[Rfam]
RNA sequence: AAGUUAAAGAAGAAGCCGUCCGCUUCUCACCUUAUGGCUCAAGCUUAUAGGGUUAAACAUAAUGCAUUUACUAUGCUUUUUAUGCUUGCUUUGCGGAUGGAUUUUUCCAUCCGCUUUAUUUAUUUUGG
Numbered sequence: 001a002a003g004u005u006a007a008a009g010a011a012g013a014a015g016c017c018g019u020c021c022g023c024u025u026c027u028c029a030c031c032u033u034a035u036g037g038c039u040c041a042a043g044c045u046u047a048u049a050g051g052g053u054u055a056a057a058c059a060u061a062a063u064g065c066a067u068u069u070a071c072u073a074u075g076c077u078u079u080u081u082a083u084g085c086u087u088g089c090u091u092u093g094c095g096g097a098u099g100g101a102u103u104u105u106u107c108c109a110u111c112c113g114c115u116u117u118a119u120u121u122a123u124u125u126u127g128g
Stems, first nucleotide, its partner, number of pairs: 011027006029053003034048003037044002093114009
RNA: Ribosomal protein L20 leader
Organism: Desulfonispora thiosulfatigenes